[Rfam]
A member of the RNA family "Small nucleolar RNA SNORD101" from Calidris pygmaea, 75 nucleotides long.
NCBI's taxonomy places the organism under Eukaryota, Bilateria, Craniata, Dinosauria, Calidris.
Its Rfam clan is "SNORD101 clan".

RNA sequence: GUUUGGGUGAUGACUUUAGCAUUUGUUGGAUACCCCUUCACUCUUCCUAUGAGUGAGAAUUGCAGUCUGACAAAC
Numbered sequence: 001g002u003u004u005g006g007g008u009g010a011u012g013a014c015u016u017u018a019g020c021a022u023u024u025g026u027u028g029g030a031u032a033c034c035c036c037u038u039c040a041c042u043c044u045u046c047c048u049a050u051g052a053g054u055g056a057g058a059a060u061u062g063c064a065g066u067c068u069g070a071c072a073a074a075c
Stems, first nucleotide, its partner, number of pairs: 001075005